Shown here is a 73-nucleotide sequence from Zea mays, a member of the family "tRNA". It is annotated as a transfer RNA. Its Rfam clan is "tRNA clan". A search with the family's covariance model found it, with a score of 55 bits. Gene Ontology term of the family: triplet codon-amino acid adaptor activity. The base pairs follow the family's consensus structure, which is taken from published work.
[Rfam]
RNA sequence: GCUUGUGUAGCUCAGUUGGUAUAGCGCAAGGUUCUUAACUUUAAGGUUGUGGGUUCGAGCCCCACCUUGAGCA
Numbered sequence: 001g002c003u004u005g006u007g008u009a010g011c012u013c014a015g016u017u018g019g020u021a022u023a024g025c026g027c028a029a030g031g032u033u034c035u036u037a038a039c040u041u042u043a044a045g046g047u048u049g050u051g052g053g054u055u056c057g058a059g060c061c062c063c064a065c066c067u068u069g070a071g072c073a
Base pairs, nucleotide, nucleotide: 001072002071003070004069005068007066010025011024012023028042029041030040031039049065050064051063052062053061